[Rfam]
Source information:
Bacterial RNase P class A: a 397-nucleotide sequence from Corynebacterium phocae.
RNA sequence: CGAGCCGGCCGGGUGAACGCGACGCUUUUUCAAACGGCAGUCCAAGUGGCUGCACGUGGGCGUCGAGGAAAGUCCGGACUCCACAGAGCACGGUGGUUGCUAACGGCAACCCAGGGUGACCUGCGGGAUCAGUGCAACAGAAAGUAAACCGCCCGGCCUUUUAAGGUCAGGUAAGGGUGAAACGGUGCGGUAAGAGCGCACCAGCACCGCCAGUGAUGGCGGUGGCUAUGUAAACCCCACCGGGAGCAAGGCAUCACGGCCCGUACCACGUGCGGGCCCGAUCAAGCGCUAGUAGGCUGCUCGCCGAAGCUUGAAGGUAGCUGCUCGAGCCGCCAUGCGCGGCCUAGAUGGAUGUUCACCGUUUAGACAGAAUCCGGCUUAUAAGCCGGCUCGUUCG
Numbered sequence: 001c002g003a004g005c006c007g008g009c010c011g012g013g014u015g016a017a018c019g020c021g022a023c024g025c026u027u028u029u030u031c032a033a034a035c036g037g038c039a040g041u042c043c044a045a046g047u048g049g050c051u052g053c054a055c056g057u058g059g060g061c062g063u064c065g066a067g068g069a070a071a072g073u074c075c076g077g078a079c080u081c082c083a084c085a086g087a088g089c090a091c092g093g094u095g096g097u098u099g100c101u102a103a104c105g106g107c108a109a110c111c112c113a114g115g116g117u118g119a120c121c122u123g124c125g126g127g128a129u130c131a132g133u134g135c136a137a138c139a140g141a142a143a144g145u146a147a148a149c150c151g152c153c154c155g156g157c158c159u160u161u162u163a164a165g166g167u168c169a170g171g172u173a174a175g176g177g178u179g180a181a182a183c184g185g186u187g188c189g190g191u192a193a194g195a196g197c198g199c200a201c202c203a204g205c206a207c208c209g210c211c212a213g214u215g216a217u218g219g220c221g222g223u224g225g226c227u228a229u230g231u232a233a234a235c236c237c238c239a240c241c242g243g244g245a246g247c248a249a250g251g252c253a254u255c256a257c258g259g260c261c262c263g264u265a266c267c268a269c270g271u272g273c274g275g276g277c278c279c280g281a282u283c284a285a286g287c288g289c290u291a292g293u294a295g296g297c298u299g300c301u302c303g304c305c306g307a308a309g310c311u312u313g314a315a316g317g318u319a320g321c322u323g324c325u326c327g328a329g330c331c332g333c334c335a336u337g338c339g340c341g342g343c344c345u346a347g348a349u350g351g352a353u354g355u356u357c358a359c360c361g362u363u364u365a366g367a368c369a370g371a372a373u374c375c376g377g378c379u380u381a382u383a384a385g386c387c388g389g390c391u392c393g394u395u396c397g
Stems, first nucleotide, its partner, number of pairs: 001393009011382001012360007020065008070380003074377005079246004086302004091242005096110005111125001112123004126237002132235002134231003149176002151172003155168005184202006204226001205224008250322003282314006293307001295305003329343005
It is annotated as a ribozyme. Its family is annotated with tRNA processing, ribonuclease P activity and dimeric ribonuclease P complex in the Gene Ontology.